[Rfam]
RNA sequence: AUCUAGAUCAGUCUAUCUUCUCUACAUUCCUUCGCACAACCCAGUUCAUACCAAUCCCUCAAUCAGUCACCAUGUCUCCCUGCACCUGCAACUGCUGCUCCGGCGACUGCAACUCUUGCUCUUGCUCUGAUUGCAAGGCAUGUACCCUCCUACCUACC
Numbered sequence: 001a002u003c004u005a006g007a008u009c010a011g012u013c014u015a016u017c018u019u020c021u022c023u024a025c026a027u028u029c030c031u032u033c034g035c036a037c038a039a040c041c042c043a044g045u046u047c048a049u050a051c052c053a054a055u056c057c058c059u060c061a062a063u064c065a066g067u068c069a070c071c072a073u074g075u076c077u078c079c080c081u082g083c084a085c086c087u088g089c090a091a092c093u094g095c096u097g098c099u100c101c102g103g104c105g106a107c108u109g110c111a112a113c114u115c116u117u118g119c120u121c122u123u124g125c126u127c128u129g130a131u132u133g134c135a136a137g138g139c140a141u142g143u144a145c146c147c148u149c150c151u152a153c154c155u156a157c158c
Stems, first nucleotide, its partner, number of pairs: 081105003088098003109134003118125002